[Rfam]
RNA sequence: GAAGGCUGAGGUAGUAGAUUGAAUAGUUGUGGGGUAAACUUCACCCCCUUUGAGUUAACUAUACAAUCUCCUGUCUUUCCUGA
Numbered sequence: 001g002a003a004g005g006c007u008g009a010g011g012u013a014g015u016a017g018a019u020u021g022a023a024u025a026g027u028u029g030u031g032g033g034g035u036a037a038a039c040u041u042c043a044c045c046c047c048c049u050u051u052g053a054g055u056u057a058a059c060u061a062u063a064c065a066a067u068c069u070c071c072u073g074u075c076u077u078u079c080c081u082g083a
Stems, first nucleotide, its partner, number of pairs: 003081003008077007016069006023062005032046004048054002

Source information:
Rfam assigns this 83-nucleotide RNA sequence from Gouania willdenowi to the family "let-7 microRNA precursor family". Pairs were carried over by alignment from the consensus structure, which was predicted with RNAalifold. This family represents the microRNAs (miRNA) let-7 and mir-98. let-7 was identified from a study of developmental timing in C. elegans, and was later shown to be part of a much larger class of non-coding RNAs termed miRNAs. A search with the family's covariance model found it, with a score of 68 bits.